Rfam assigns this 84-nucleotide RNA sequence from Phascolarctos cinereus to the family "Stem loopII regulatory element in POLB".
RNA sequence: ACCACCACACGGCAGUCUUUAUUUCUUGAACUUUACUGUGUAAGGGUCCUUAUUGUUUAUAAAUAAUAGCUUCCUUUUCACUCU
Numbered sequence: 001a002c003c004a005c006c007a008c009a010c011g012g013c014a015g016u017c018u019u020u021a022u023u024u025c026u027u028g029a030a031c032u033u034u035a036c037u038g039u040g041u042a043a044g045g046g047u048c049c050u051u052a053u054u055g056u057u058u059a060u061a062a063a064u065a066a067u068a069g070c071u072u073c074c075u076u077u078u079c080a081c082u083c084u
Stems, first nucleotide, its partner, number of pairs: 009077001011075002018062002024052001029047001031045006
Background
It scores 41 bits against the family's covariance model.